A member of the RNA family "small nucleolar RNA snoR114" from Ricinus communis, 90 nucleotides long. The organism belongs to Ricinus, within Eukaryota. It is annotated as a C/D-box small nucleolar RNA. Rfam 15.1 lists 1,645 matches to the family in 183 species. Pairs were carried over by alignment from the consensus structure, which was predicted with RNAalifold. On this family, see Chen and Wu, Nucleic Acids Res 2009: "Mining small RNA sequencing data: a new approach to identify small nucleolar RNAs in Arabidopsis". Rfam links the family to the GO terms RNA processing and nucleolus.
RNA sequence: GAGCUAUGAGGAUAUUUUGCACCUUUGUGAUGGUUGGGUCUAUCACUCUCAUCUGAUAUGGAGAUGAAAGCAGCAGGUUUAACUGAGCUC
Numbered sequence: 001g002a003g004c005u006a007u008g009a010g011g012a013u014a015u016u017u018u019g020c021a022c023c024u025u026u027g028u029g030a031u032g033g034u035u036g037g038g039u040c041u042a043u044c045a046c047u048c049u050c051a052u053c054u055g056a057u058a059u060g061g062a063g064a065u066g067a068a069a070g071c072a073g074c075a076g077g078u079u080u081a082a083c084u085g086a087g088c089u090c
Base pairs, nucleotide, nucleotide: 001090002089003088004087